[Rfam]
RNA sequence: GUUUGCCUGUGUGUGGAUGGUGUUCAGCACCAAGGACAGGUGUGUUGGCCUGUGUGUGGAUGGUGUUCAGCACCAAGGACAGGCAUGUUUGCCU
Numbered sequence: 001g002u003u004u005g006c007c008u009g010u011g012u013g014u015g016g017a018u019g020g021u022g023u024u025c026a027g028c029a030c031c032a033a034g035g036a037c038a039g040g041u042g043u044g045u046u047g048g049c050c051u052g053u054g055u056g057u058g059g060a061u062g063g064u065g066u067u068c069a070g071c072a073c074c075a076a077g078g079a080c081a082g083g084c085a086u087g088u089u090u091g092c093c094u
Base pairs, nucleotide, nucleotide: 004085005084006083007082008081009080010079018075019074020073021072022071023070024069026067027066028065029064030063031062032061034055036053037052038051039050040049041048
RNA: mir-2060 microRNA precursor family